[Rfam]
RNA sequence: CUUCCCAAUUGACUAUCAUUUUGUCAUUUCACAGAUUCAGUGAUUAUGCUUAUGGAAUAAAAUAUAGUUGCCAUGGCAUGAUGGAAAAGAAAUAGCCAUGUCUUUUCUUUUUCUUACAUAUAAUGGCACAACAAUCUAGC
Numbered sequence: 001c002u003u004c005c006c007a008a009u010u011g012a013c014u015a016u017c018a019u020u021u022u023g024u025c026a027u028u029u030c031a032c033a034g035a036u037u038c039a040g041u042g043a044u045u046a047u048g049c050u051u052a053u054g055g056a057a058u059a060a061a062a063u064a065u066a067g068u069u070g071c072c073a074u075g076g077c078a079u080g081a082u083g084g085a086a087a088a089g090a091a092a093u094a095g096c097c098a099u100g101u102c103u104u105u106u107c108u109u110u111u112u113c114u115u116a117c118a119u120a121u122a123a124u125g126g127c128a129c130a131a132c133a134a135u136c137u138a139g140c
Stems, first nucleotide, its partner, number of pairs: 005055003016043004070127004087115006
Rfam assigns this 140-nucleotide sequence from Sarcophilus harrisii to the family "Small nucleolar RNA SNORA29".
The organism belongs to Sarcophilus, within Eukaryota.
Rfam 15.1 lists 960 matches to the family in 621 species.
The literature on the family includes a 2001 paper in EMBO J by Huttenhofer et al., "RNomics: an experimental approach that identifies 201 candidates for novel, small, non-messenger RNAs in mouse".
Rfam's curators write: ACA29 is a member of the H/ACA class of snoRNA that guide the sites of modification of uridines to pseudouridines.
The family is grouped with related families in Rfam's "SNORA20 clan".
By type it is an H/ACA-box small nucleolar RNA.
The match comes from Rfam's covariance-model search (80 bits).
Rfam links the family to the GO terms RNA processing and nucleolus.